[Rfam]
RNA sequence: GCUAUCAACAUCCCCGCCGGUUGGGCGCGGCGUUUCUACUAAACCCGCGUAGUGAACCGGCUGUAGC
Numbered sequence: 001g002c003u004a005u006c007a008a009c010a011u012c013c014c015c016g017c018c019g020g021u022u023g024g025g026c027g028c029g030g031c032g033u034u035u036c037u038a039c040u041a042a043a044c045c046c047g048c049g050u051a052g053u054g055a056a057c058c059g060g061c062u063g064u065a066g067c
Base pairs, nucleotide, nucleotide: 001067002066003065004064006063007062013054014052016061017060018059019058020057021056022055023053025050026049027048028047029046030045